RNA: Clostridioides difficile sRNA included into helicase gene
RNA sequence: GGUGUAGAAGAGAAAGUGCUGCACCUUGAAGAAGAAAGAAGGCUUGCUUAUGUGGCCAUGACCCGGGCAAAAGAGAAGUUGUAUCUGGUCUUCCCUGAAAA
Numbered sequence: 001g002g003u004g005u006a007g008a009a010g011a012g013a014a015a016g017u018g019c020u021g022c023a024c025c026u027u028g029a030a031g032a033a034g035a036a037a038g039a040a041g042g043c044u045u046g047c048u049u050a051u052g053u054g055g056c057c058a059u060g061a062c063c064c065g066g067g068c069a070a071a072a073g074a075g076a077a078g079u080u081g082u083a084u085c086u087g088g089u090c091u092u093c094c095c096u097g098a099a100a101a
Base pairs, nucleotide, nucleotide: 005097006096007095009092010091020054021053022052023051029045030044031043055090057088060085061084066080067079068078